Shown here is a 90-nucleotide sequence from Ricinus communis, a member of the family "Small nucleolar RNA Z221/R21b". The organism belongs to Ricinus, within Eukaryota. By type it is a C/D-box small nucleolar RNA.

[Rfam]
RNA sequence: GGGCAGUGAUGAGAUGAUUGAGAAAGUCAUGCACCACUCUGAUUUUUUCUGUGCUGAUAAGUUUCUCAUACCCAUUACACAUCUGAGCCU
Dot-bracket structure: ((((..................................................................................))))